A member of the RNA family "Glm Y RNA activator of glmS mRNA" from Biostraticola tofi, 163 nucleotides long.
Clan: Glm clan.
A reference for the family is Rivas et al. (2001), "Computational identification of noncoding RNAs in E. coli by comparative genomics", Curr Biol.
It scores 119 bits against the family's covariance model.
Rfam describes the family as follows. This family consists of a number of bacterial RNA genes of around 167 bases in length.
[Rfam]
RNA sequence: AGUUGCUCAUUCAACCAGAUAUGACAGGGCUUCAGGGUAGGAAGCCAGAAACUUCAUAACGCCAGAAUGACGCCAAAAACGGUGCCUAUCGUCCAACAUAACCGAUAAUGUCCUAAGGGACAUUAACAAGCAUAGGGCGACACGUUGAGUGAGGCACCUCCUU
Numbered sequence: 001a002g003u004u005g006c007u008c009a010u011u012c013a014a015c016c017a018g019a020u021a022u023g024a025c026a027g028g029g030c031u032u033c034a035g036g037g038u039a040g041g042a043a044g045c046c047a048g049a050a051a052c053u054u055c056a057u058a059a060c061g062c063c064a065g066a067a068u069g070a071c072g073c074c075a076a077a078a079a080c081g082g083u084g085c086c087u088a089u090c091g092u093c094c095a096a097c098a099u100a101a102c103c104g105a106u107a108a109u110g111u112c113c114u115a116a117g118g119g120a121c122a123u124u125a126a127c128a129a130g131c132a133u134a135g136g137g138c139g140a141c142a143c144g145u146u147g148a149g150u151g152a153g154g155c156a157c158c159u160c161c162u163u
Base pairs, nucleotide, nucleotide: 005073006072007070008069009068010067011066012065020058021057022056023055024054026053027052081158082157083156084155085154086153087152090139091138092137093136094135104127106125107124108123141151142150143149